[Rfam]
A member of the RNA family "Plastid-rpl20 3UTR RNA" from Musa balbisiana, 81 nucleotides long. It scores 60 bits against the family's covariance model. It is annotated as a cis-regulatory element. Rfam's curators write: Plastid rpl20 is a non-coding RNA (ncRNA) recognised in plastids. The base pairs follow the family's consensus structure, which was predicted with LocARNA.
RNA sequence: ACAGAAUUACCGGAGAAGGAACUCGGGAAAAUAGAAUAAAAAUAAUUACGUAGUAAUAGGACUGAACGAAUCUGUUUCAAU
Dot-bracket structure: ......((.((.(((......))))).))..................................((((......))))....